[Rfam]
RNA sequence: UUAUAAGUAAAAUUAUACUUUUCAGAUUCAUUGAAUAACUGAUGAAUUUGGACUAUAAUAAAGACCAGAUACAUCAGUUAUUCAAUGAAUCUAAAAAGUACAUUUUUGCUUAUAU
Numbered sequence: 001u002u003a004u005a006a007g008u009a010a011a012a013u014u015a016u017a018c019u020u021u022u023c024a025g026a027u028u029c030a031u032u033g034a035a036u037a038a039c040u041g042a043u044g045a046a047u048u049u050g051g052a053c054u055a056u057a058a059u060a061a062a063g064a065c066c067a068g069a070u071a072c073a074u075c076a077g078u079u080a081u082u083c084a085a086u087g088a089a090u091c092u093a094a095a096a097a098g099u100a101c102a103u104u105u106u107u108g109c110u111u112a113u114a115u
Stems, first nucleotide, its partner, number of pairs: 002114006009107004016100007024092002027089018049067003